Description: This 402-nucleotide RNA from Owenweeksia hongkongensis belongs to the Rfam family "transfer-messenger RNA". It scores 142 bits against the family's covariance model. The base pairs follow the family's consensus structure, which is taken from published work. Lineage of the source: Bacteria > Pseudomonadati > Bacteroidota > Owenweeksiaceae > Owenweeksia hongkongensis. By type it is a non-coding RNA gene.
[Rfam]
Nucleotides: 402
Base pairs, nucleotide, nucleotide: 001398002397003396004395005394006393007392019371020370021368022367023366024365025364030361031360032359034357035356036355038353039352043345044344045343046342047341048069049068050067051066052065056081057080058079060077061076177219178218179217180216181215182214183209184208185207186206188204189203190202194234195233196232197231198230199229237263239261240260241259242258243257248281249280250279251278252277285319286317287316288315290313291312292311295308296307297306300336301335302334303333304332305331375391376390377389378388379387
Number, partner (000 for none) and nucleotide at each position: 001398g002397g003396g004395g005394c006393u007392g008000a009000c010000c011000g012000g013000u014000u015000u016000c017000g018000a019371c020370a021368g022367c023366a024365a025364g026000a027000u028000g029000a030361a031360a032359u033000g034357g035356g036355u037000c038353g039352u040000a041000a042000g043345c044344a045343u046342g047341c048069c049068g050067g051066a052065g053000u054000a055000u056081g057080a058079g059000g060077u061076u062000a063000c064000c065052u066051u067050c068049c069048g070000a071000u072000a073000u074000c075000a076061a077060g078000g079058u080057u081056c082000u083000u084000c085000a086000a087000a088000u089000u090000a091000u092000a093000g094000u095000u096000g097000g098000c099000g100000a101000a102000a103000a104000u105000a106000a107000c108000u109000u110000c111000g112000c113000a114000c115000u116000u117000g118000c119000c120000g121000c122000g123000u124000a125000a126000u127000c128000a129000c130000u131000c132000g133000a134000u135000a136000g137000a138000g139000g140000g141000u142000u143000a144000c145000a146000g147000c148000u149000a150000a151000u152000c153000u154000c155000a156000g157000c158000g159000u160000a161000a162000g163000a164000c165000g166000c167000g168000g169000g170000a171000g172000c173000a174000a175000g176000u177219c178218a179217u180216c181215u182214c183209u184208c185207a186206a187000a188204c189203c190202c191000u192000a193000g194234g195233u196232c197231u198230g199229g200000u201000u202190g203189g204188g205000u206186u207185u208184g209183a210000u211000c212000a213000a214182g215181a216180g217179g218178u219177g220000u221000c222000a223000u224000u225000a226000a227000a228000u229199c230198c231197g232196g233195a234194c235000u236000a237263g238000u239261a240260a241259g242258u243257g244000u245000a246000g247000c248281g249280u250279u251278g252277c253000g254000u255000a256000c257243c258242a259241c260240u261239u262000u263237c264000g265000a266000a267000a268000c269000u270000c271000u272000a273000a274000u275000u276000c277252g278251u279250a280249a281248c282000u283000a284000a285319g286317c287316u288315a289000u290313a291312g292311u293000u294000g295308g296307g297306g298000u299000g300336u301335u302334u303333g304332u305331u306297c307296c308295c309000a310000g311292g312291c313290u314000c315288u316287a317286g318000u319285c320000g321000a322000a323000a324000a325000u326000c327000u328000a329000a330000u331305g332304a333303c334302a335301a336300a337000a338000u339000a340000a341047g342046c343045a344044u345043g346000u347000a348000g349000a350000a351000a352039g353038c354000u355036a356035c357034u358000g359032a360031u361030u362000u363000c364025c365024u366023u367022g368021u369000u370020u371019g372000c373000a374000c375391g376390u377389g378388g379387g380000u381000u382000c383000g384000a385000c386000u387379c388378c389377c390376a391375c392007c393006a394005g395004c396003u397002c398001c399000a400000c401000a402000a